[Rfam]
The record is a 71-nucleotide sequence from Ophiocordyceps camponoti-rufipedis, which matches "tRNA" in Rfam. The organism belongs to Ophiocordyceps, within Eukaryota. The family's consensus secondary structure is taken from published work. It is annotated as a transfer RNA.
RNA sequence: AUCUCAUUAGCUCAAAGGUAGAGCCUGAUAUUCCUAAUAUCCCGAUCUUAGUUCGAAUCUAAGAUGAGACA
Numbered sequence: 001a002u003c004u005c006a007u008u009a010g011c012u013c014a015a016a017g018g019u020a021g022a023g024c025c026u027g028a029u030a031u032u033c034c035u036a037a038u039a040u041c042c043c044g045a046u047c048u049u050a051g052u053u054c055g056a057a058u059c060u061a062a063g064a065u066g067a068g069a070c071a
Base pairs, nucleotide, nucleotide: 002069003068004067005066006065007064010024011023012022013021027041028040029039030038047063048062049061050060051059